[Rfam]
RNA sequence: AGACAUGAAGUUAGGUCAGCAAACCCGCUGAAUUUAAGCAUAUAAGUAAGCGGAGGAUAAGAAACUAAAUAGGAUUCCCUCAGUAAUGGCGAAUGAACAGGGAUCAGCUCAGCAUGGAAAUUGGGCCCUCGGCCUUGAAUUGUAGUCUCGAGAUGCAUCGCCAAUGGAGGCGCAGAUGUAAGCCUCUUGGAAAAGAGCAUCAACGAGGGUGAGAGUCCCGUUUGUCAUCUGCAGUCCCCCAUGCACGGCGUGCUUCUAAGAGUCGCGUUCCUCGGAAUUGGAGCGUCAAUUGGGUGGUAAAUUUCAUCUCAAGCUAAAUAUUGGUUCGAGACCGAUAGCAAACAAGUACCAUGAGGGAAAGGUGAAAAGGACUUUGAAAAGAGAGUUAAAAGUGCCUGAAAUUGCUGAAAGGGAAG
Numbered sequence: 001a002g003a004c005a006u007g008a009a010g011u012u013a014g015g016u017c018a019g020c021a022a023a024c025c026c027g028c029u030g031a032a033u034u035u036a037a038g039c040a041u042a043u044a045a046g047u048a049a050g051c052g053g054a055g056g057a058u059a060a061g062a063a064a065c066u067a068a069a070u071a072g073g074a075u076u077c078c079c080u081c082a083g084u085a086a087u088g089g090c091g092a093a094u095g096a097a098c099a100g101g102g103a104u105c106a107g108c109u110c111a112g113c114a115u116g117g118a119a120a121u122u123g124g125g126c127c128c129u130c131g132g133c134c135u136u137g138a139a140u141u142g143u144a145g146u147c148u149c150g151a152g153a154u155g156c157a158u159c160g161c162c163a164a165u166g167g168a169g170g171c172g173c174a175g176a177u178g179u180a181a182g183c184c185u186c187u188u189g190g191a192a193a194a195g196a197g198c199a200u201c202a203a204c205g206a207g208g209g210u211g212a213g214a215g216u217c218c219c220g221u222u223u224g225u226c227a228u229c230u231g232c233a234g235u236c237c238c239c240c241a242u243g244c245a246c247g248g249c250g251u252g253c254u255u256c257u258a259a260g261a262g263u264c265g266c267g268u269u270c271c272u273c274g275g276a277a278u279u280g281g282a283g284c285g286u287c288a289a290u291u292g293g294g295u296g297g298u299a300a301a302u303u304u305c306a307u308c309u310c311a312a313g314c315u316a317a318a319u320a321u322u323g324g325u326u327c328g329a330g331a332c333c334g335a336u337a338g339c340a341a342a343c344a345a346g347u348a349c350c351a352u353g354a355g356g357g358a359a360a361g362g363u364g365a366a367a368a369g370g371a372c373u374u375u376g377a378a379a380a381g382a383g384a385g386u387u388a389a390a391a392g393u394g395c396c397u398g399a400a401a402u403u404g405c406u407g408a409a410a411g412g413g414a415a416g
Stems, first nucleotide, its partner, number of pairs: 024055001025053005035042002065072002076103005086094002106315004112147001115144002118141002121138005127132001152256002155253003159250004166239002169236002172232007182198001184197004201205001208218002265286007292309005349356002372383004
The family of this 416-nucleotide part of an RNA from Prorocentrum micans is "Eukaryotic large subunit ribosomal RNA". The sequence is in the family's curated seed alignment. Lineage of the source: Eukaryota > Sar > Dinophyceae > Prorocentrales > Prorocentrum.